[Rfam]
RNA: Small nucleolar RNA SNORA43
Organism: Muntiacus reevesi
RNA sequence: GAUACUGGACCUGCCAACAUCAUCAGAGCAGCUGUCCUGUUGCACCCGUGACAUCACGGCAGAGAGGAAGCAACUAUUUCUACACUCAGUGCUCAUAACAGUGAGUGAUAAGUAUGGCUUAUAGCCAGACAUUG
Number, nucleotide and partner (000 for none) at each position: 001g000002a000003u061004a000005c059006u056007g055008g054009a000010c000011c000012u000013g000014c000015c000016a000017a000018c000019a000020u000021c000022a049023u048024c000025a000026g000027a000028g000029c000030a000031g000032c000033u000034g000035u000036c000037c000038u000039g000040u000041u000042g000043c000044a000045c000046c000047c000048g023049u022050g000051a000052c000053a000054u008055c007056a006057c000058g000059g005060c000061a003062g000063a000064g000065a000066g000067g000068a000069a000070g000071c000072a000073a000074c124075u000076a000077u000078u000079u000080c117081u116082a115083c000084a000085c112086u111087c000088a000089g000090u107091g106092c105093u104094c103095a102096u000097a000098a000099c000100a000101g000102u095103g094104a093105g092106u091107g090108a000109u000110a000111a086112g085113u000114a000115u082116g081117g080118c000119u000120u000121a000122u000123a000124g074125c000126c000127a000128g000129a000130c000131a000132u000133u000134g000